[Rfam]
RNA sequence: CGGCUGUAAUGGUCACAAGUUUAAGAAGAUAUCAGCAUCCCGUAUCUUUCUAACCAUUUCGACCUUCGGGUCACCACCAACAGUGCCCAGUUCGAACACGGCGGUGGCUUCCCACUCGUGUAGGUAACUCACGAUGCUGGUGGAGCCUUAAGCAAUGAAGAACACUUCUCGAGGGAGGCCUCACUCUGCAGAGAGAUCCUCACCGUCGGGUGGCGGUAUUGGAUUACACUUGUUGCGUGGUUUGGUUAUGAGAUUUGGGUUGAGCGUCGACUUUUUUUUUGCCUUUUAUCUCUUUAUCAUCUUU
Numbered sequence: 001c002g003g004c005u006g007u008a009a010u011g012g013u014c015a016c017a018a019g020u021u022u023a024a025g026a027a028g029a030u031a032u033c034a035g036c037a038u039c040c041c042g043u044a045u046c047u048u049u050c051u052a053a054c055c056a057u058u059u060c061g062a063c064c065u066u067c068g069g070g071u072c073a074c075c076a077c078c079a080a081c082a083g084u085g086c087c088c089a090g091u092u093c094g095a096a097c098a099c100g101g102c103g104g105u106g107g108c109u110u111c112c113c114a115c116u117c118g119u120g121u122a123g124g125u126a127a128c129u130c131a132c133g134a135u136g137c138u139g140g141u142g143g144a145g146c147c148u149u150a151a152g153c154a155a156u157g158a159a160g161a162a163c164a165c166u167u168c169u170c171g172a173g174g175g176a177g178g179c180c181u182c183a184c185u186c187u188g189c190a191g192a193g194a195g196a197u198c199c200u201c202a203c204c205g206u207c208g209g210g211u212g213g214c215g216g217u218a219u220u221g222g223a224u225u226a227c228a229c230u231u232g233u234u235g236c237g238u239g240g241u242u243u244g245g246u247u248a249u250g251a252g253a254u255u256u257g258g259g260u261u262g263a264g265c266g267u268c269g270a271c272u273u274u275u276u277u278u279u280u281g282c283c284u285u286u287u288a289u290c291u292c293u294u295u296a297u298c299a300u301c302u303u304u
Base pairs, nucleotide, nucleotide: 002014003013004012017303018302019301021299023297026294027293028292029291031289032288036262037261039259040258041257044254045253046252047251049250051248052247053246054245055244056243061072062071063070064069075239076238077237078235079234080233081232082231083229084228085227087222088221089220090219091218092216093215094214096211097210099208100207101206102205103204104203106147108145109144110143111142112140113139114138116134117133118132119131120130122129123128148152156202157201158200160198161197166195167194168193169192170191175186176185177184

Rfam assigns this 304-nucleotide sequence from Lachnellula hyalina to the family "Fungal signal recognition particle RNA". Its family is annotated with signal recognition particle, plasma membrane targeting, signal recognition particle, endoplasmic reticulum targeting and SRP-dependent cotranslational protein targeting to membrane, signal sequence recognition in the Gene Ontology. Lineage of the source: Eukaryota > Opisthokonta > leotiomyceta > Lachnaceae > Lachnellula.